[Rfam]
RNA sequence: GUUCGUCGCAAAGCUCUCCACCUCCUCCCAGGCUUUGCGAUAACAAGACCGGUUCUCCUCCCAAUGCCGGUCUUCCCCUAAUGGCAUCCGUCGCCCUCCUCCCGCGACGGAUGCCAUUU
Numbered sequence: 001g002u003u004c005g006u007c008g009c010a011a012a013g014c015u016c017u018c019c020a021c022c023u024c025c026u027c028c029c030a031g032g033c034u035u036u037g038c039g040a041u042a043a044c045a046a047g048a049c050c051g052g053u054u055c056u057c058c059u060c061c062c063a064a065u066g067c068c069g070g071u072c073u074u075c076c077c078c079u080a081a082u083g084g085c086a087u088c089c090g091u092c093g094c095c096c097u098c099c100u101c102c103c104g105c106g107a108c109g110g111a112u113g114c115c116a117u118u119u
Stems, first nucleotide, its partner, number of pairs: 007039003011035003016032002045074009084114011
RNA: Alphaproteobacterial ar14
Organism: Brucella ovis